This 151-nucleotide RNA from Enhydra lutris belongs to the Rfam family "U4 spliceosomal RNA". It scores 48 bits against the family's covariance model. The source organism's lineage runs through Eukaryota, Vertebrata, Eutheria, Carnivora and Enhydra lutris. Rfam classes the family as a spliceosomal small nuclear RNA.

RNA sequence: AGCUUUACACACUACCAGAAUCACAGCCAGUGAGGUUUAUCUGAGGUGUGAUUAUUGCCAACUGAAAACUCUUCCUAGCAUGACUGACCAGCUCAGUUGGAGGAGCAUGUGACUCUUGAUCUCCAGGUUGUGAGUUUGAGCCCUGCACUGG
Number, nucleotide and partner (000 for none) at each position: 001a000002g000003c000004u000005u000006u000007a000008c000009a000010c000011a000012c000013u000014a000015c000016c000017a000018g000019a000020a052021u051022c050023a049024c048025a000026g047027c046028c045029a000030g000031u000032g000033a000034g042035g041036u000037u000038u000039a000040u000041c035042u034043g000044a000045g028046g027047u026048g024049u023050g022051a021052u020053u000054a000055u000056u000057g000058c000059c000060a000061a000062c000063u000064g000065a000066a000067a000068a000069c000070u000071c000072u000073u000074c000075c000076u000077a000078g000079c000080a000081u000082g000083a000084c000085u000086g000087a110088c109089c000090a000091g106092c105093u104094c103095a000096g000097u000098u000099g000100g000101a000102g000103g094104a093105g092106c091107a000108u000109g088110u087111g000112a000113c000114u000115c000116u000117u000118g000119a000120u000121c000122u000123c151124c150125a149126g148127g000128u000129u000130g000131u000132g000133a000134g000135u000136u000137u000138g000139a000140g000141c000142c000143c000144u000145g000146c000147a000148c126149u125150g124151g123